[Rfam]
RNA sequence: CCCGCCACUGUGCUUGCCUAUUUUCAGCCGUGGCUUGCGCAUUCCAGUGGUGAGCUGAGAAAAAAACACCCUUUCAAGGAAACAGAGCUAUUCUCUCCCGUGGGUAACUCUGUGCCGAAGACUGGGAACAGAA
Numbered sequence: 001c002c003c004g005c006c007a008c009u010g011u012g013c014u015u016g017c018c019u020a021u022u023u024u025c026a027g028c029c030g031u032g033g034c035u036u037g038c039g040c041a042u043u044c045c046a047g048u049g050g051u052g053a054g055c056u057g058a059g060a061a062a063a064a065a066a067c068a069c070c071c072u073u074u075c076a077a078g079g080a081a082a083c084a085g086a087g088c089u090a091u092u093c094u095c096u097c098c099c100g101u102g103g104g105u106a107a108c109u110c111u112g113u114g115c116c117g118a119a120g121a122c123u124g125g126g127a128a129c130a131g132a133a
Base pairs, nucleotide, nucleotide: 005050006049007048008047009046010045018037020035022032069126070125071124074121075120078116079115083112084111085110086109087108091104092103093102

Overview: A member of the RNA family "Small nucleolar RNA SNORA65" from Pantherophis guttatus, 133 nucleotides long. From the family's description: U65 belongs to the H/ACA class of snoRNAs which are thought to guide the sites of modification of uridines to pseudouridines. On this family, see Huttenhofer et al., EMBO J 2001: "RNomics: an experimental approach that identifies 201 candidates for novel, small, non-messenger RNAs in mouse". The family is grouped with related families in Rfam's "SNORA65 clan".